Source information
A member of the RNA family "c-di-GMP-I riboswitch aptamer" from Niallia nealsonii, 88 nucleotides long.

RNA sequence: CCAAGAUAAAGGCAAACCAUUUGAAAAGAUGGGACGCAAAGCCUCAGAUCUAAGGUAAUUUUAUUACUAUGAUGGCUGGGCCACCUUA
Numbered sequence: 001c002c003a004a005g006a007u008a009a010a011g012g013c014a015a016a017c018c019a020u021u022u023g024a025a026a027a028g029a030u031g032g033g034a035c036g037c038a039a040a041g042c043c044u045c046a047g048a049u050c051u052a053a054g055g056u057a058a059u060u061u062u063a064u065u066a067c068u069a070u071g072a073u074g075g076c077u078g079g080g081c082c083a084c085c086u087u088a
Stems, first nucleotide, its partner, number of pairs: 012037002017032006041081003045078003048073003055067004
Lineage of the source: Bacteria > Bacillota > Bacilli > Caryophanales > Niallia.
Rfam links the family to the GO term cyclic-di-GMP binding.
Rfam's curators write: GEMM was predicted in a large-scale screen for bacterial structured RNA regulatory elements.
A reference for the family is Weinberg et al. (2007), "Identification of 22 candidate structured RNAs in bacteria using the CMfinder comparative genomics pipeline", Nucleic Acids Res.